The record is a 114-nucleotide RNA from Selenihalanaerobacter shriftii, which matches "SAM riboswitch aptamer (S box leader)" in Rfam.
[Rfam]
RNA sequence: CUCUUAUCAAGAGAGGUGGAGGGACUGGCCCGAUGAAGCCCGGCAACCGGUAGUAUAAGUUCGCAAUACUAUAGCGGUGCCAAAUCCUGCAGCAAAAAUGCUGGAAGAUGAGAA
Numbered sequence: 001c002u003c004u005u006a007u008c009a010a011g012a013g014a015g016g017u018g019g020a021g022g023g024a025c026u027g028g029c030c031c032g033a034u035g036a037a038g039c040c041c042g043g044c045a046a047c048c049g050g051u052a053g054u055a056u057a058a059g060u061u062c063g064c065a066a067u068a069c070u071a072u073a074g075c076g077g078u079g080c081c082a083a084a085u086c087c088u089g090c091a092g093c094a095a096a097a098a099u100g101c102u103g104g105a106a107g108a109u110g111a112g113a114a
Base pairs, nucleotide, nucleotide: 002113003112004111005110006109007108008107013041015040016039017038021031022030023029025089027087028086042081043080044079045078047077048076050072051071052070053069054068055067056066085106090103091102092101093100094099
It scores 86 bits against the family's covariance model.